[Rfam]
RNA: MIR2619 microRNA precursor family
Organism: Medicago truncatula
RNA sequence: AAACCACCUCCUAAGUUUUGCAAUUGUAGCAGUUUUGGCCCACAAGGCCAAUUUUUGGUAAAAAAAAAAUAACACGUGGCACCUCAUUUAGGGUGCCACGUCCGGGUAGACCGAGUUAAAAUUGGCUUUGGGGGCCAAAACUGUCACAAAUGUAAAACUUAGGUGGUGGUUU
Numbered sequence: 001a002a003a004c005c006a007c008c009u010c011c012u013a014a015g016u017u018u019u020g021c022a023a024u025u026g027u028a029g030c031a032g033u034u035u036u037g038g039c040c041c042a043c044a045a046g047g048c049c050a051a052u053u054u055u056u057g058g059u060a061a062a063a064a065a066a067a068a069a070u071a072a073c074a075c076g077u078g079g080c081a082c083c084u085c086a087u088u089u090a091g092g093g094u095g096c097c098a099c100g101u102c103c104g105g106g107u108a109g110a111c112c113g114a115g116u117u118a119a120a121a122u123u124g125g126c127u128u129u130g131g132g133g134g135c136c137a138a139a140a141c142u143g144u145c146a147c148a149a150a151u152g153u154a155a156a157a158c159u160u161a162g163g164u165g166g167u168g169g170u171u172u
Stems, first nucleotide, its partner, number of pairs: 001172002004169005012161011024149004029144013043130003074101002077098007